[Rfam]
RNA sequence: ACAACCGAACCGGGGAGCCUGAAAUGCCAGGCUGAGAGGAGAAUGCAAAAUUCUCGACCCGUAGAACCUGAACCGGAUAAUACCGGCGGAGGGAGUAUCUUAUAGCCUUUA
Numbered sequence: 001a002c003a004a005c006c007g008a009a010c011c012g013g014g015g016a017g018c019c020u021g022a023a024a025u026g027c028c029a030g031g032c033u034g035a036g037a038g039g040a041g042a043a044u045g046c047a048a049a050a051u052u053c054u055c056g057a058c059c060c061g062u063a064g065a066a067c068c069u070g071a072a073c074c075g076g077a078u079a080a081u082a083c084c085g086g087c088g089g090a091g092g093g094a095g096u097a098u099c100u101u102a103u104a105g106c107c108u109u110u111a
Base pairs, nucleotide, nucleotide: 007098009096010095011061012060013059014058017032018031019030020029021028039055040054041053042052043051067092068091069090073086074085075084076083